U4atac minor spliceosomal RNA: a 144-nucleotide RNA from Microctonus hyperodae.
The literature on the family includes a 2008 paper in J Mol Evol by Marz et al., "Evolution of spliceosomal snRNA genes in metazoan animals".
Rfam links the family to the GO terms spliceosomal tri-snRNP complex assembly, pre-mRNA 5'-splice site binding and mRNA 5'-splice site recognition.
Nucleotides: 144
Stems, first nucleotide, its partner, number of pairs: 005019004021059004025054007037045002085131005093122009
Number, partner (000 for none) and nucleotide at each position: 001000u002000u003000u004000g005019u006018c007017c008016u009000u010000g011000u012000c013000u014000u015000u016008g017007g018006g019005g020000a021059g022058c023057a024056u025054a026053g027052u028051a029050u030049u031048c032000a033000a034000u035000g036000a037045a038044c039000g040000a041000u042000u043000u044038g045037u046000g047000a048031g049030g050029g051028u052027a053026c054025u055000g056024a057023u058022g059021c060000u061000g062000a063000a064000a065000c066000c067000a068000a069000u070000u071000a072000u073000u074000a075000a076000a077000u078000a079000a080000u081000u082000c083000c084000c085131g086130c087129a088128u089127c090000u091000g092000u093122a094121u095120a096119u097118u098117u099116u100115a101114u102000u103000u104000g105000g106000g107000u108000a109000a110000a111000u112000c113000c114101a115100u116099a117098a118097a119096a120095u121094a122093u123000a124000u125000u126000u127089g128088g129087u130086g131085c132000a133000a134000u135000u136000u137000u138000u139000g140000g141000a142000g143000g144000g